[Rfam]
RNA sequence: CCAAGAACUUUGUAUUGCGCACAUCACUUAGAUGAACUUUAGAGAGUCACAUAGAAG
Numbered sequence: 001c002c003a004a005g006a007a008c009u010u011u012g013u014a015u016u017g018c019g020c021a022c023a024u025c026a027c028u029u030a031g032a033u034g035a036a037c038u039u040u041a042g043a044g045a046g047u048c049a050c051a052u053a054g055a056a057g
Base pairs, nucleotide, nucleotide: 019037022034023033024032025031
RNA: Plastid-ndhJ 3UTR RNA
Organism: Gossypium mustelinum